[Rfam]
RNA sequence: GCCUACCCUGCAGGAGAGAGGAGGCGCCGUCAGGCGCCCCCCGCCGAAGGCGCAAGCUCCCAUAAUCGCUCAGGCACCGGGAACUGCGGGGUUCAU
Numbered sequence: 001g002c003c004u005a006c007c008c009u010g011c012a013g014g015a016g017a018g019a020g021g022a023g024g025c026g027c028c029g030u031c032a033g034g035c036g037c038c039c040c041c042c043g044c045c046g047a048a049g050g051c052g053c054a055a056g057c058u059c060c061c062a063u064a065a066u067c068g069c070u071c072a073g074g075c076a077c078c079g080g081g082a083a084c085u086g087c088g089g090g091g092u093u094c095a096u
Stems, first nucleotide, its partner, number of pairs: 006091008020041002023038003043075003046071002050069003056063001

Shown here is a 96-nucleotide RNA sequence from Oryzomicrobium terrae, a member of the family "Glycine riboswitch aptamer". It scores 50 bits against the family's covariance model. Gene Ontology term of the family: glycine biosynthetic process.